[Rfam]
mir-1000 microRNA precursor family: a 72-nucleotide RNA from Apolygus lucorum.
Nucleotides: 072
Base pairs, nucleotide, nucleotide: 003070004069005068006067012061013060014059015058016057017056018055022051023050024049025048026047027046028045029044
Number, partner (000 for none) and nucleotide at each position: 001000g002000g003070c004069g005068g006067u007000u008000u009000u010000a011000u012061u013060g014059u015058c016057c017056u018055g019000u020000c021000a022051c023050a024049g025048c026047a027046g028045u029044a030000u031000u032000g033000u034000g035000c036000c037000a038000c039000a040000u041000u042000c043000c044029u045028a046027c047026u048025g049024c050023u051022g052000g053000u054000a055018c056017g057016g058015g059014a060013c061012a062000u063000a064000c065000c066000g067006a068005c069004c070003g071000c072000u
The match comes from Rfam's covariance-model search (68 bits). The organism belongs to Apolygus, within Eukaryota.